[Rfam]
RNA: Iron response element I
Organism: Phyllostomus discolor
RNA sequence: CUGUCUCUCGCUUCAACACUGUUUGGACAGAACCG
Numbered sequence: 001c002u003g004u005c006u007c008u009c010g011c012u013u014c015a016a017c018a019c020u021g022u023u024u025g026g027a028c029a030g031a032a033c034c035g
Base pairs, nucleotide, nucleotide: 001035003033004032006031007030008029010028012027013026014025015024016023017021